[Rfam]
RNA sequence: GCAGAGAAGAGGAAGAGAGAGACUCCAAGAGCAUUGGGAAUAGGAUCAAAGAGGGGAGUCUAGAGCUCGAUUUCUCCUCCAUUAUCAGAGGUAGAAAUUUGCUUUGUGUUCUCCCGAUGCCUCAUAUUCCUAUCGAUCCUAGGCACUCCUUCCUCUUUUUUUGGCUU
Numbered sequence: 001g002c003a004g005a006g007a008a009g010a011g012g013a014a015g016a017g018a019g020a021g022a023c024u025c026c027a028a029g030a031g032c033a034u035u036g037g038g039a040a041u042a043g044g045a046u047c048a049a050a051g052a053g054g055g056g057a058g059u060c061u062a063g064a065g066c067u068c069g070a071u072u073u074c075u076c077c078u079c080c081a082u083u084a085u086c087a088g089a090g091g092u093a094g095a096a097a098u099u100u101g102c103u104u105u106g107u108g109u110u111c112u113c114c115c116g117a118u119g120c121c122u123c124a125u126a127u128u129c130c131u132a133u134c135g136a137u138c139c140u141a142g143g144c145a146c147u148c149c150u151u152c153c154u155c156u157u158u159u160u161u162u163g164g165c166u167u
Stems, first nucleotide, its partner, number of pairs: 009158005015152003019148003024143002027140001029138002032135001035132008044123002047119002051115001053114007
Shown here is a 167-nucleotide sequence from Triticum turgidum, a member of the family "MIR2118 microRNA precursor family".
On this family, see Zhu et al., Genome Res 2008: "A diverse set of microRNAs and microRNA-like small RNAs in developing rice grains".
Pairs were carried over by alignment from the consensus structure, which was predicted with RNAalifold.